[Rfam]
RNA sequence: CUGGAAUGAUGCAACUUAGCCAAAUCAGACAUGGAUGUGCUCCGUGGGAUUGUUUCUAAGUAGCUUGUGCCAGCAUCUGUUGGAUGCAGUUGUGCAAGUCACAGUUCACAUCCUUUGUUGAAGUGCAUCUCUCUGAUGAUAAAACAGAGAAUGGUUGCUAGCUGACCAGA
Numbered sequence: 001c002u003g004g005a006a007u008g009a010u011g012c013a014a015c016u017u018a019g020c021c022a023a024a025u026c027a028g029a030c031a032u033g034g035a036u037g038u039g040c041u042c043c044g045u046g047g048g049a050u051u052g053u054u055u056c057u058a059a060g061u062a063g064c065u066u067g068u069g070c071c072a073g074c075a076u077c078u079g080u081u082g083g084a085u086g087c088a089g090u091u092g093u094g095c096a097a098g099u100c101a102c103a104g105u106u107c108a109c110a111u112c113c114u115u116u117g118u119u120g121a122a123g124u125g126c127a128u129c130u131c132u133c134u135g136a137u138g139a140u141a142a143a144a145c146a147g148a149g150a151a152u153g154g155u156u157g158c159u160a161g162c163u164g165a166c167c168a169g170a
Base pairs, nucleotide, nucleotide: 001169002168003167004166

Annotation: This 170-nucleotide RNA from Cynara cardunculus belongs to the Rfam family "small nucleolar RNA snoR127". For this family Rfam cites "Mining small RNA sequencing data: a new approach to identify small nucleolar RNAs in Arabidopsis" (Chen and Wu, Nucleic Acids Res, 2009). Its family is annotated with RNA processing and nucleolus in the Gene Ontology. Taxonomically the source falls in Cynara cardunculus subsp. cardunculus (Eukaryota, Streptophyta, Euphyllophyta, Carduoideae). It scores 65 bits against the family's covariance model.